[Rfam]
RNA sequence: CCCGGGGUCCGUCUGAGUCCAGUGGCAGGGACGGGGGACCCACGUGUUCGCGGCUCCGGAAGGAGCCUUGGGGUGAAGUGCGGCCAGCUCGCUGGUGGCACCGGGCGUUCUCCCGCCCGAACCCGACAGCUCACUCCGUAGGCAGCCAGGAGAGGUACA
Numbered sequence: 001c002c003c004g005g006g007g008u009c010c011g012u013c014u015g016a017g018u019c020c021a022g023u024g025g026c027a028g029g030g031a032c033g034g035g036g037g038a039c040c041c042a043c044g045u046g047u048u049c050g051c052g053g054c055u056c057c058g059g060a061a062g063g064a065g066c067c068u069u070g071g072g073g074u075g076a077a078g079u080g081c082g083g084c085c086a087g088c089u090c091g092c093u094g095g096u097g098g099c100a101c102c103g104g105g106c107g108u109u110c111u112c113c114c115g116c117c118c119g120a121a122c123c124c125g126a127c128a129g130c131u132c133a134c135u136c137c138g139u140a141g142g143c144a145g146c147c148a149g150g151a152g153a154g155g156u157a158c159a
Stems, first nucleotide, its partner, number of pairs: 001030003031139006041070002071124003079100003103118004